Background
MIR4371 microRNA precursor family: a 156-nucleotide RNA from Glycine soja. Gene Ontology terms of the family: miRNA-mediated post-transcriptional gene silencing and RISC complex.

[Rfam]
RNA sequence: UCGUUAAGUGAUGGUGUAACAUAGAGUGUCACGUUAUCAUGUCUUGUCAUUGACAUCUCAUUGUCAUGUCAUCACCUUCAAUAACGUGACAUUGAUAUGUCACUGAUUAGGCAUGAUGAUGUGACACUCCGUCUGUCACGUCAUCACUUAACGAAA
Numbered sequence: 001u002c003g004u005u006a007a008g009u010g011a012u013g014g015u016g017u018a019a020c021a022u023a024g025a026g027u028g029u030c031a032c033g034u035u036a037u038c039a040u041g042u043c044u045u046g047u048c049a050u051u052g053a054c055a056u057c058u059c060a061u062u063g064u065c066a067u068g069u070c071a072u073c074a075c076c077u078u079c080a081a082u083a084a085c086g087u088g089a090c091a092u093u094g095a096u097a098u099g100u101c102a103c104u105g106a107u108u109a110g111g112c113a114u115g116a117u118g119a120u121g122u123g124a125c126a127c128u129c130c131g132u133c134u135g136u137c138a139c140g141u142c143a144u145c146a147c148u149u150a151a152c153g154a155a156a
Stems, first nucleotide, its partner, number of pairs: 001154017019136003023132001024129021046107004052101005068085002071082002
The base pairs follow the family's consensus structure, which was predicted with RNAalifold. The organism belongs to Glycine subgen. Soja, within Eukaryota.